[Rfam]
Rfam assigns this 80-nucleotide RNA sequence from Mauremys mutica to the family "mir-31 microRNA precursor family".
RNA sequence: GACCUGAGGGGAGGCAAGAUGUUGGCAUAGCUGUUGACCUAAUAACCUGCUAUGCCAACAUAUUGUCAUCGUUCUCGUCU
Dot-bracket structure: .....(((.((.(((((.(((.(((((((((.................))))))))).))).))))).)).)))......

Pairs were carried over by alignment from the consensus structure, which was predicted with RNAalifold. It scores 72 bits against the family's covariance model.